[Rfam]
RNA sequence: CUUCCCGUUUGACUACCACAUUUUCUCCUUGUAAUAGAUUUUAGUGGCUAUGCUUACGGGAUAGAUUAAAAUCGCCAUGAUCUGAAGAGGGAGGGUUUUUGGUGUCCUCCUCCUAUAUGAAAUGGCUGAACAGAACAUG
Dot-bracket structure: ...((((........((((........................)))).........)))).............((((..............((((...............))))........)))).............
The record is a 139-nucleotide sequence from Tupaia belangeri, which matches "Small nucleolar RNA SNORA29" in Rfam. About the family: ACA29 is a member of the H/ACA class of snoRNA that guide the sites of modification of uridines to pseudouridines. The sequence is in the family's curated seed alignment. A reference for the family is Huttenhofer et al. (2001), "RNomics: an experimental approach that identifies 201 candidates for novel, small, non-messenger RNAs in mouse", EMBO J. The family is grouped with related families in Rfam's "SNORA20 clan". The family's consensus secondary structure was predicted with PFOLD.